This 162-nucleotide RNA from Raphanus sativus belongs to the Rfam family "Small nucleolar RNA U19".
A search with the family's covariance model found it, with a score of 52 bits.
A reference for the family is Marker et al. (2002), "Experimental RNomics: identification of 140 candidates for small non-messenger RNAs in the plant Arabidopsis thaliana", Curr Biol.
RNA sequence: AUCUGGCUUAGUUAGGAGGCAAACAUUAAUCUGAUCAAUCAAUACUGUUCUGUAUUGUUUGUUGGUCGUUUGACUUGAGGCUUUUUUUUGUUUUUCUUUGAGGAGGAGCUUCUGUUUUUCUUCAGUUCAACCUUCUUCUUAUGAAAAGUGCUUCAGACAUUA
Numbered sequence: 001a002u003c004u005g006g007c008u009u010a011g012u013u014a015g016g017a018g019g020c021a022a023a024c025a026u027u028a029a030u031c032u033g034a035u036c037a038a039u040c041a042a043u044a045c046u047g048u049u050c051u052g053u054a055u056u057g058u059u060u061g062u063u064g065g066u067c068g069u070u071u072g073a074c075u076u077g078a079g080g081c082u083u084u085u086u087u088u089u090g091u092u093u094u095u096c097u098u099u100g101a102g103g104a105g106g107a108g109c110u111u112c113u114g115u116u117u118u119u120c121u122u123c124a125g126u127u128c129a130a131c132c133u134u135c136u137u138c139u140u141a142u143g144a145a146a147a148g149u150g151c152u153u154c155a156g157a158c159a160u161u162a
Stems, first nucleotide, its partner, number of pairs: 004021002007018003034066005042058003046054001075156007085147007